[Rfam]
RNA: U4atac minor spliceosomal RNA
Organism: Mizuhopecten yessoensis
RNA sequence: ACCGUCUUUAUCGAGGGCUGGGAGCUUGUCCAAUGAAAGUUAAUUGAGGGCAAGACUGCUAACACCCACGUAAUAAUUUAACGCACCGCUUGUACGCAAGUAUAGGUAUGGGUGCAAUUUUUGGUAUU
Dot-bracket structure: ......(((.....)))..(.(..(((((((.....((.....))..)))))))..).).......................(((((.((.((((....)))).))....))))).............